This 69-nucleotide RNA sequence from Actinoplanes octamycinicus belongs to the Rfam family "ASpks TB sRNA". The match comes from Rfam's covariance-model search (69 bits). Lineage of the source: Bacteria > Bacillati > Actinomycetota > Actinomycetes > Actinoplanes. By type it is an antisense RNA.
[Rfam]
RNA sequence: UUUGACCGAGCCGAGCCACAGCGGCUCCGACCGAUCCUGCCCAUAAGUAGCCAGCAGCGCCUGCGCCUC
Numbered sequence: 001u002u003u004g005a006c007c008g009a010g011c012c013g014a015g016c017c018a019c020a021g022c023g024g025c026u027c028c029g030a031c032c033g034a035u036c037c038u039g040c041c042c043a044u045a046a047g048u049a050g051c052c053a054g055c056a057g058c059g060c061c062u063g064c065g066c067c068u069c
Base pairs, nucleotide, nucleotide: 014026015025016024017023027063032059033058037054038053039052041050043048